Shown here is an 81-nucleotide RNA sequence from Desulfovibrio ferrophilus, a member of the family "c-di-GMP-I-GGC riboswitch aptamer". The source organism's lineage runs through Bacteria, Thermodesulfobacteriota, Desulfovibrionia, Desulfovibrionales and Desulfovibrio. The family is grouped with related families in Rfam's "c-di-GMP_I riboswitch clan".
RNA sequence: AGUAAAAAAGCCAAACUCGCCGCGAGGGGGGGACGGAAAGCCACGGAUCUCAGUGGAUAUGAGAUGGCCGGGUUGCCAAGG
Numbered sequence: 001a002g003u004a005a006a007a008a009a010g011c012c013a014a015a016c017u018c019g020c021c022g023c024g025a026g027g028g029g030g031g032g033a034c035g036g037a038a039a040g041c042c043a044c045g046g047a048u049c050u051c052a053g054u055g056g057a058u059a060u061g062a063g064a065u066g067g068c069c070g071g072g073u074u075g076c077c078a079a080g081g
Base pairs, nucleotide, nucleotide: 003078011036012035016031017030018029020027021026034067039074040073041072042071044070045069046068047065048064049063